[Rfam]
RNA sequence: UAUAACUACUAGGGGUGCCCAAAAAACGCGGGCUGAGAGGAAAGGCGUCUACAAGCUUUCCGACUCUUACGGACCUGAUCUGGCUAACACCAGCGUAGGGAAGUAGUCUGACAGCAAU
Numbered sequence: 001u002a003u004a005a006c007u008a009c010u011a012g013g014g015g016u017g018c019c020c021a022a023a024a025a026a027c028g029c030g031g032g033c034u035g036a037g038a039g040g041a042a043a044g045g046c047g048u049c050u051a052c053a054a055g056c057u058u059u060c061c062g063a064c065u066c067u068u069a070c071g072g073a074c075c076u077g078a079u080c081u082g083g084c085u086a087a088c089a090c091c092a093g094c095g096u097a098g099g100g101a102a103g104u105a106g107u108c109u110g111a112c113a114g115c116a117a118u
Stems, first nucleotide, its partner, number of pairs: 006106005011067004017033004040060005074099004080093004
RNA: TPP riboswitch aptamer (THI element)